[Rfam]
RNA sequence: UAAAUUGCUAUGAAAAGAUGAGUAUAAUUCUAUGUGAAUUCACAGAGAGCCCGGAAGAUGGAAAAGGGUAAUGUCACCGAAUUAGAAGAUGGUCUUGAAGCAGUGCAUGUUUGAAUCCUUUGGAUGAGGACAUGAUGGGUGCGCCCAUUAGCGCGUUACGGUUUACCAGGCUUGACCUGGGCGAACCGGUCGAGGCAUGUUGUGUGAGCAAUAUGCAAAAUAAGGUGGUAACACGUCAAUGAGACGCCCUUAGC
Numbered sequence: 001u002a003a004a005u006u007g008c009u010a011u012g013a014a015a016a017g018a019u020g021a022g023u024a025u026a027a028u029u030c031u032a033u034g035u036g037a038a039u040u041c042a043c044a045g046a047g048a049g050c051c052c053g054g055a056a057g058a059u060g061g062a063a064a065a066g067g068g069u070a071a072u073g074u075c076a077c078c079g080a081a082u083u084a085g086a087a088g089a090u091g092g093u094c095u096u097g098a099a100g101c102a103g104u105g106c107a108u109g110u111u112u113g114a115a116u117c118c119u120u121u122g123g124a125u126g127a128g129g130a131c132a133u134g135a136u137g138g139g140u141g142c143g144c145c146c147a148u149u150a151g152c153g154c155g156u157u158a159c160g161g162u163u164u165a166c167c168a169g170g171c172u173u174g175a176c177c178u179g180g181g182c183g184a185a186c187c188g189g190u191c192g193a194g195g196c197a198u199g200u201u202g203u204g205u206g207a208g209c210a211a212u213a214u215g216c217a218a219a220a221u222a223a224g225g226u227g228g229u230a231a232c233a234c235g236u237c238a239a240u241g242a243g244a245c246g247c248c249c250u251u252a253g254c
Stems, first nucleotide, its partner, number of pairs: 007101002015096004025084006038072003049069004106134007136147003195216007222251004234246004
RNA: T-box leader
Organism: Agrilactobacillus composti